[Rfam]
RNA sequence: CCAAUCCCGAUCAACAAGGUCUAGUCAACCAUUGGAAGCGAGUCUUGCGUAGUCAGCAGUAAUGCUGGCGCGAAGCGUAGACAGCGACUGCUAAAGGUAUGCGACUGAGCCUCGAAACAUGUCUCAAUGUCGAAGUCUUGGUUCUUUCGAACACCAGGACAACAUCAAACCGGCGUUAUCAGACGAGCCGGGGCGAUUCGGCCGGGGUCGAAGGGUA
Numbered sequence: 001c002c003a004a005u006c007c008c009g010a011u012c013a014a015c016a017a018g019g020u021c022u023a024g025u026c027a028a029c030c031a032u033u034g035g036a037a038g039c040g041a042g043u044c045u046u047g048c049g050u051a052g053u054c055a056g057c058a059g060u061a062a063u064g065c066u067g068g069c070g071c072g073a074a075g076c077g078u079a080g081a082c083a084g085c086g087a088c089u090g091c092u093a094a095a096g097g098u099a100u101g102c103g104a105c106u107g108a109g110c111c112u113c114g115a116a117a118c119a120u121g122u123c124u125c126a127a128u129g130u131c132g133a134a135g136u137c138u139u140g141g142u143u144c145u146u147u148c149g150a151a152c153a154c155c156a157g158g159a160c161a162a163c164a165u166c167a168a169a170c171c172g173g174c175g176u177u178a179u180c181a182g183a184c185g186a187g188c189c190g191g192g193g194c195g196a197u198u199c200g201g202c203c204g205g206g207g208u209c210g211a212a213g214g215g216u217a
Base pairs, nucleotide, nucleotide: 011035012034013033014032018030019029020028022186024184025183038085039084042082043081044080045079046077047076048072049071050070053068054067055066056065057064058063106211107209109208110207111206112205113204114203129202130201131200132199133198134197135160136159137158140155141154142153165196166195170191172189173188174187